[Rfam]
RNA sequence: AAAAACCGUUGGGGGUGCCUGGAUUUCAGGCUGAGAGAGUCCCUAUGAACCUGCACAAGGUAAUGCUUGCGAAGGGAAACGGAGGAAGCUGAAA
Numbered sequence: 001a002a003a004a005a006c007c008g009u010u011g012g013g014g015g016u017g018c019c020u021g022g023a024u025u026u027c028a029g030g031c032u033g034a035g036a037g038a039g040u041c042c043c044u045a046u047g048a049a050c051c052u053g054c055a056c057a058a059g060g061u062a063a064u065g066c067u068u069g070c071g072a073a074g075g076g077a078a079a080c081g082g083a084g085g086a087a088g089c090u091g092a093a094a
Base pairs, nucleotide, nucleotide: 006082007081008080009079010078011044012043013042014041016038017031018030019029020028021027050075051074052073056069057068058067059066
This 94-nucleotide sequence from Leptospira ryugenii belongs to the Rfam family "TPP riboswitch aptamer (THI element)". Rfam describes the family as follows. Vitamin B(1) in its active form thiamin pyrophosphate (TPP) is an essential coenzyme that is synthesised by coupling of pyrimidine and thiazole moieties in bacteria. The organism belongs to Leptospira, within Bacteria. It scores 73 bits against the family's covariance model.